The record is a 93-nucleotide RNA from Melghiribacillus thermohalophilus, which matches "Selenocysteine transfer RNA" in Rfam. The base pairs follow the family's consensus structure, which is taken from published work. The organism belongs to Melghiribacillus, within Bacteria. The match comes from Rfam's covariance-model search (64 bits). Rfam 15.1 lists 4,211 matches to the family in 3,344 species.
[Rfam]
RNA sequence: GGGGCUGGUUGCGGAGCUGGUGCCCGCCGCGGUCUUCAAAACCGUCCGGGAGGCGCGUGUCGUCUCCGGUGGGUUCGAUUCCCACACAGUCCC
Numbered sequence: 001g002g003g004g005c006u007g008g009u010u011g012c013g014g015a016g017c018u019g020g021u022g023c024c025c026g027c028c029g030c031g032g033u034c035u036u037c038a039a040a041a042c043c044g045u046c047c048g049g050g051a052g053g054c055g056c057g058u059g060u061c062g063u064c065u066c067c068g069g070u071g072g073g074u075u076c077g078a079u080u081c082c083c084a085c086a087c088a089g090u091c092c093c
Stems, first nucleotide, its partner, number of pairs: 001093007008085001011027004016023002029045005049067005070084004